RNA sequence: UUGUGUUAAGGAUUGAAGUGGAAAUCCUUUAUCCCCUUUUCGGGGAUAAAGAUUGCAACAAAAAGCCUGACCCGCA
Numbered sequence: 001u002u003g004u005g006u007u008a009a010g011g012a013u014u015g016a017a018g019u020g021g022a023a024a025u026c027c028u029u030u031a032u033c034c035c036c037u038u039u040u041c042g043g044g045g046a047u048a049a050a051g052a053u054u055g056c057a058a059c060a061a062a063a064a065g066c067c068u069g070a071c072c073c074g075c076a
Stems, first nucleotide, its partner, number of pairs: 009068003013064002018059002023054004029049008
The family of this 76-nucleotide sequence from Pedobacter cryophilus is "Flavo-1 RNA". The family's RNA type in Rfam is small RNA. Rfam 15.1 lists 7,497 matches to the family in 411 species. The family's consensus secondary structure is taken from published work.